Background:
This 99-nucleotide sequence belongs to the Rfam family "skipping-rope RNA". It is annotated as a small RNA.
RNA sequence: GUUAUUCGAGGUGGAAGAUUUCGUCCCCGUCCACGCUCCGAUGGCUUGACAAAGGGAAACCUUGAGAGAUGCAGGAGAAUGGGACGCCUACCGAAUAAC
Number, nucleotide and partner (000 for none) at each position: 001g099002u098003u097004a096005u095006u094007c093008g092009a000010g000011g034012u033013g032014g031015a030016a000017g000018a000019u000020u000021u000022c000023g085024u084025c083026c082027c081028c000029g000030u015031c014032c013033a012034c011035g000036c066037u057038c056039c055040g000041a000042u000043g000044g000045c000046u000047u000048g000049a000050c000051a000052a000053a000054g000055g039056g038057a037058a000059a000060c000061c000062u000063u000064g000065a000066g036067a000068g000069a000070u000071g091072c000073a089074g088075g087076a000077g000078a000079a000080u000081g027082g026083g025084a024085c023086g000087c075088c074089u073090a000091c071092c008093g007094a006095a005096u004097a003098a002099c001